[Rfam]
RNA sequence: UGUUAAUAAGAGAUUUCUUACUGAAAAUGUCUGAACAUAUGAAUUCUAUAGUGAUUUCAGUGCACUACUGAGAUAAGCU
Numbered sequence: 001u002g003u004u005a006a007u008a009a010g011a012g013a014u015u016u017c018u019u020a021c022u023g024a025a026a027a028u029g030u031c032u033g034a035a036c037a038u039a040u041g042a043a044u045u046c047u048a049u050a051g052u053g054a055u056u057u058c059a060g061u062g063c064a065c066u067a068c069u070g071a072g073a074u075a076a077g078c079u
Stems, first nucleotide, its partner, number of pairs: 002078003006074002
Shown here is a 79-nucleotide RNA from Corythaeola cristata, a member of the family "Small nucleolar RNA SNORD72". Gene Ontology terms of the family: nucleolus and RNA processing. The source organism's lineage runs through Eukaryota, Bilateria, Amniota, Archosauria and Corythaeola. snoRNA HBII-240 belongs to the CD family of snoRNAs. It is the human orthologue of the mouse MBII-240 and is predicted to guide 2'O-ribose methylation of the large 28S rRNA at residue U4590. A reference for the family is Huttenhofer et al. (2001), "RNomics: an experimental approach that identifies 201 candidates for novel, small, non-messenger RNAs in mouse", EMBO J. The base pairs follow the family's consensus structure. The match comes from Rfam's covariance-model search (60 bits).